[Rfam]
RNA sequence: UAAUCAAUGUUGCCGAAUUUCAAUCGUUGAAAACGGGGGAACCACAUCUGGGUGAAUUAUUCCUGAAAGCAAGGGAAUAUAGGGAAACCUUUAACCGAACCCUCAGCUAACUCCGUAGGCAUUUGAAGGGAGAAUCA
Numbered sequence: 001u002a003a004u005c006a007a008u009g010u011u012g013c014c015g016a017a018u019u020u021c022a023a024u025c026g027u028u029g030a031a032a033a034c035g036g037g038g039g040a041a042c043c044a045c046a047u048c049u050g051g052g053u054g055a056a057u058u059a060u061u062c063c064u065g066a067a068a069g070c071a072a073g074g075g076a077a078u079a080u081a082g083g084g085a086a087a088c089c090u091u092u093a094a095c096c097g098a099a100c101c102c103u104c105a106g107c108u109a110a111c112u113c114c115g116u117a118g119g120c121a122u123u124u125g126a127a128g129g130g131a132g133a134a135u136c137a
Stems, first nucleotide, its partner, number of pairs: 011121004018032003033116006050102003058079007082096002

Shown here is a 137-nucleotide RNA sequence from Paenibacillus agri, a member of the family "c-di-AMP riboswitch aptamer (ydaO/yuaA leader)". The organism belongs to Paenibacillus, within Bacteria. This family represents a conserved RNA structure found upstream of the ydaO and yuaA genes in Bacillus subtilis and related genes in other bacteria.